RNA sequence: AAGAUCCUGAUGAUUCUACCAUCAGUUUGGAACAUUUAUUGUGAAAAUACUUUUAAACUCUAAUGGGAGAGACAGCAGGAUUC
Numbered sequence: 001a002a003g004a005u006c007c008u009g010a011u012g013a014u015u016c017u018a019c020c021a022u023c024a025g026u027u028u029g030g031a032a033c034a035u036u037u038a039u040u041g042u043g044a045a046a047a048u049a050c051u052u053u054u055a056a057a058c059u060c061u062a063a064u065g066g067g068a069g070a071g072a073c074a075g076c077a078g079g080a081u082u083c
Stems, first nucleotide, its partner, number of pairs: 003082007011074002014071004019066004024061002028057001031054002037049004
About this RNA:
Shown here is an 83-nucleotide RNA from Fukomys damarensis, a member of the family "mir-1305 microRNA precursor family". Rfam links the family to the GO terms miRNA-mediated post-transcriptional gene silencing and RISC complex. Lineage of the source: Eukaryota > Dipnotetrapodomorpha > Tetrapoda > Mammalia > Fukomys. The base pairs follow the family's consensus structure, which was predicted with RNAalifold. It scores 79 bits against the family's covariance model.